[Rfam]
RNA sequence: UUCUUAUCAAGAGAGGUGGAGGGAAUUGGCCCUUUGAAGCCUCGGCAGCAGAUUCUUAAGGUUCUUAGAGAAAACUGUGCCAAAUCCAACGAGCUUUUCGCUUGAUAGAUAAGAA
Numbered sequence: 001u002u003c004u005u006a007u008c009a010a011g012a013g014a015g016g017u018g019g020a021g022g023g024a025a026u027u028g029g030c031c032c033u034u035u036g037a038a039g040c041c042u043c044g045g046c047a048g049c050a051g052a053u054u055c056u057u058a059a060g061g062u063u064c065u066u067a068g069a070g071a072a073a074a075c076u077g078u079g080c081c082a083a084a085u086c087c088a089a090c091g092a093g094c095u096u097u098u099c100g101c102u103u104g105a106u107a108g109a110u111a112a113g114a115a
Stems, first nucleotide, its partner, number of pairs: 001115008013043005021032003026089004044081004049077002053072005085107001090104005
This 115-nucleotide RNA sequence from Metabacillus arenae belongs to the Rfam family "SAM riboswitch aptamer (S box leader)". A search with the family's covariance model found it, with a score of 84 bits. NCBI's taxonomy places the organism under Bacteria, Bacillati, Bacillota, Caryophanales, Metabacillus.